[Rfam]
RNA: c-di-GMP-I riboswitch aptamer
Nucleotides: 089
Stems, first nucleotide, its partner, number of pairs: 012037002017032006040083004045079003048074003055068004
Number, partner (000 for none) and nucleotide at each position: 001000u002000a003000g004000a005000g006000c007000u008000a009000u010000g011000g012037g013036c014000a015000a016000a017032c018031c019030c020029g021028g022027u023000u024000a025000a026000a027022a028021c029020c030019g031018g032017g033000g034000a035000c036013g037012c038000a039000a040083a041082g042081c043080c044000g045079a046078g047077g048074g049073u050072c051000u052000a053000a054000g055068g056067u057066g058065u059000c060000u061000u062000a063000g064000g065058g066057c067056g068055c069000u070000a071000u072050g073049a074048u075000a076000g077047u078046c079045u080043g081042g082041c083040u084000g085000c086000c087000a088000a089000a